[Rfam]
RNA sequence: CAAGUAGAACAAAUAAUCGCGGCUGACAGAACCGAAAGGGGUCAGGUGAGGAAAGUCCGGGCUUCACAGGGCAGGAUGCCAGAUAACGUCUGGUGGAGGUGACUCUAAGGACAGUGCAACAGAAAUGUACCGCCGGAAUAUUCCGGUAAGGGUGGAAGGGCAGUGUAAGAGACUACCGCCUUUCUGGUAACAGAAAGGGCACAUGUAAACCCCAUCCGAAGCAAGACCGAACAGAAAACCAUGUGGCUGCCCGUCACGUUUUCAGGUGGGUCGCUUGAGCCUGCUGGCGACAGCAGGACUGGAUAGAUGAUUAUUCACGACAUAACCCGGCUUAUCGUUUUGCUUGUUAU
Numbered sequence: 001c002a003a004g005u006a007g008a009a010c011a012a013a014u015a016a017u018c019g020c021g022g023c024u025g026a027c028a029g030a031a032c033c034g035a036a037a038g039g040g041g042u043c044a045g046g047u048g049a050g051g052a053a054a055g056u057c058c059g060g061g062c063u064u065c066a067c068a069g070g071g072c073a074g075g076a077u078g079c080c081a082g083a084u085a086a087c088g089u090c091u092g093g094u095g096g097a098g099g100u101g102a103c104u105c106u107a108a109g110g111a112c113a114g115u116g117c118a119a120c121a122g123a124a125a126u127g128u129a130c131c132g133c134c135g136g137a138a139u140a141u142u143c144c145g146g147u148a149a150g151g152g153u154g155g156a157a158g159g160g161c162a163g164u165g166u167a168a169g170a171g172a173c174u175a176c177c178g179c180c181u182u183u184c185u186g187g188u189a190a191c192a193g194a195a196a197g198g199g200c201a202c203a204u205g206u207a208a209a210c211c212c213c214a215u216c217c218g219a220a221g222c223a224a225g226a227c228c229g230a231a232c233a234g235a236a237a238a239c240c241a242u243g244u245g246g247c248u249g250c251c252c253g254u255c256a257c258g259u260u261u262u263c264a265g266g267u268g269g270g271u272c273g274c275u276u277g278a279g280c281c282u283g284c285u286g287g288c289g290a291c292a293g294c295a296g297g298a299c300u301g302g303a304u305a306g307a308u309g310a311u312u313a314u315u316c317a318c319g320a321c322a323u324a325a326c327c328c329g330g331c332u333u334a335u336c337g338u339u340u341u342g343c344u345u346g347u348u349a350u
Stems, first nucleotide, its partner, number of pairs: 001346010011335001012315007020048002023045005053333003057330005062221004069252004074217005079093005094108001095106004109212002114210002116206003130151002132147006159177002162174003178200001179198008225272004234263006243257005280297007